[Rfam]
RNA sequence: CGAAAUCAUGCGAGAUCUUGGACAAAUAUCAAGUAGAUUAUUAUUAUACAUCAAUUUAUUGUUAUUUGUCCUUGAACUUAAUUGUUUUA
Numbered sequence: 001c002g003a004a005a006u007c008a009u010g011c012g013a014g015a016u017c018u019u020g021g022a023c024a025a026a027u028a029u030c031a032a033g034u035a036g037a038u039u040a041u042u043a044u045u046a047u048a049c050a051u052c053a054a055u056u057u058a059u060u061g062u063u064a065u066u067u068g069u070c071c072u073u074g075a076a077c078u079u080a081a082u083u084g085u086u087u088u089a
Base pairs, nucleotide, nucleotide: 002088003087004086005085006084008082009081012079013078014077016075017074020071021070022069023068025066026065027064028063030061031060032059035056036055038054039053042050
Shown here is an 89-nucleotide RNA sequence from Drosophila simulans, a member of the family "mir-982 microRNA precursor family". Its family is annotated with miRNA-mediated post-transcriptional gene silencing and RISC complex in the Gene Ontology. The organism belongs to Sophophora, within Eukaryota. The base pairs follow the family's consensus structure, which was predicted with RNAalifold.